The record is a 95-nucleotide RNA sequence from Chiloscyllium punctatum, which matches "mir-210 microRNA precursor family" in Rfam. Taxonomically the source falls in Chiloscyllium (Eukaryota, Opisthokonta, Bilateria, Chondrichthyes). Rfam links the family to the GO terms RISC complex and miRNA-mediated post-transcriptional gene silencing.
Nucleotides: 095
Stems, first nucleotide, its partner, number of pairs: 005081002009077001012074001015071004020066003024062001025060002028058006035051002
Number, partner (000 for none) and nucleotide at each position: 001000c002000c003000a004000u005081g006080a007000u008000g009077c010000a011000g012074g013000u014000u015071a016070g017069c018068c019000u020066c021065u022064g023000u024062c025060c026059a027000g028058c029057g030056c031055a032054u033053a034000c035051u036050g037000u038000g039000u040000u041000u042000c043000u044000g045000a046000a047000a048000u049000u050036c051035a052000c053033u054032g055031u056030g057029c058028g059026u060025g061000u062024g063000a064022c065021a066020g067000c068018g069017g070016c071015u072000g073000a074012u075000g076000a077009g078000a079000u080006u081005c082000u083000g084000g085000a086000g087000g088000u089000u090000c091000g092000u093000c094000a095000u